A member of the RNA family "msiK RNA" from Bifidobacterium minimum, 60 nucleotides long. A search with the family's covariance model found it, with a score of 62 bits. Rfam 15.1 lists 1,374 matches to the family in 1,364 species.
RNA sequence: GCAUGGAAACCCUUCACUACGGAUCGUUCGGCACGUACCUGCCGAUGAAAGGAUGAUUAU
Numbered sequence: 001g002c003a004u005g006g007a008a009a010c011c012c013u014u015c016a017c018u019a020c021g022g023a024u025c026g027u028u029c030g031g032c033a034c035g036u037a038c039c040u041g042c043c044g045a046u047g048a049a050a051g052g053a054u055g056a057u058u059a060u
Stems, first nucleotide, its partner, number of pairs: 010052002013049004028045006